[Rfam]
RNA sequence: CGCAUACACUAGGGGUGUUUUUUAACUGAGAUGAGCUAAACUCAAACCCUUUGAACCUGAACUAGCUAAGACUAGCGUAGGAAAGUGUCGCAAAACUGAC
Number, nucleotide and partner (000 for none) at each position: 001c000002g000003c000004a000005u000006a088007c087008a086009c085010u084011a050012g049013g048014g047015g000016u044017g026018u025019u024020u000021u000022u000023u000024a019025a018026c017027u000028g000029a000030g000031a000032u000033g043034a042035g041036c000037u000038a000039a000040a000041c035042u034043c033044a016045a000046a000047c014048c013049c012050u011051u000052u000053g000054a000055a000056c081057c080058u079059g078060a000061a000062c075063u074064a073065g072066c000067u000068a000069a000070g000071a000072c065073u064074a063075g062076c000077g000078u059079a058080g057081g056082a000083a000084a010085g009086u008087g007088u006089c000090g000091c000092a000093a000094a000095a000096c000097u000098g000099a000100c000

The family of this 100-nucleotide RNA from Staphylococcus gallinarum is "TPP riboswitch aptamer (THI element)". It scores 76 bits against the family's covariance model. Rfam links the family to the GO term thiamine pyrophosphate binding. The family's consensus secondary structure is taken from published work.